This 68-nucleotide RNA sequence from Trypanosoma conorhini belongs to the Rfam family "Trypanosomatid snoRNA TB10Cs3H2". Its family is annotated with RNA processing and nucleolus in the Gene Ontology. A search with the family's covariance model found it, with a score of 74 bits.
RNA sequence: UGUGUGCAGCCACUCCGGGCAGGGCGACGCCGAGUCGGUGGCGUGGCGUCCAAUCGGUGCGGCGAGAC
Dot-bracket structure: ........(((.(.((.....(((((.((((........))))...)))))....)).).))).....